[Rfam]
RNA sequence: CAUUCUGUUCGUAAGAACAAAGAGAGCAAGAUCUAUUCUAUACCCGAUAAGUACCAAUACCCUGGGA
Numbered sequence: 001c002a003u004u005c006u007g008u009u010c011g012u013a014a015g016a017a018c019a020a021a022g023a024g025a026g027c028a029a030g031a032u033c034u035a036u037u038c039u040a041u042a043c044c045c046g047a048u049a050a051g052u053a054c055c056a057a058u059a060c061c062c063u064g065g066g067a
Stems, first nucleotide, its partner, number of pairs: 003022002006019005043066003051060003
Shown here is a 67-nucleotide RNA from Musa balbisiana, a member of the family "Plastid-clpP 5UTR RNA".
A reference for the family is Richter et al. (2023), "Retrograde signaling in plants: A critical review focusing on the GUN pathway and beyond", Plant Commun.
The family's consensus secondary structure was predicted with LocARNA.
It scores 71 bits against the family's covariance model.
Rfam describes the family as follows. Plastid clpP is a non-coding RNA (ncRNA) recognised in plastids.
Rfam classes the family as a cis-regulatory element.